[Rfam]
RNA sequence: AACUGUUCCUCUCUGGAGGUUCAUACCUUCAAACUCAUGGGUCGCGGUUUUCCGACGGCCCUUUUCUUUUUUCUCU
Numbered sequence: 001a002a003c004u005g006u007u008c009c010u011c012u013c014u015g016g017a018g019g020u021u022c023a024u025a026c027c028u029u030c031a032a033a034c035u036c037a038u039g040g041g042u043c044g045c046g047g048u049u050u051u052c053c054g055a056c057g058g059c060c061c062u063u064u065u066c067u068u069u070u071u072u073c074u075c076u
Base pairs, nucleotide, nucleotide: 006018007017008016009015039061040060041059042058043057044056047053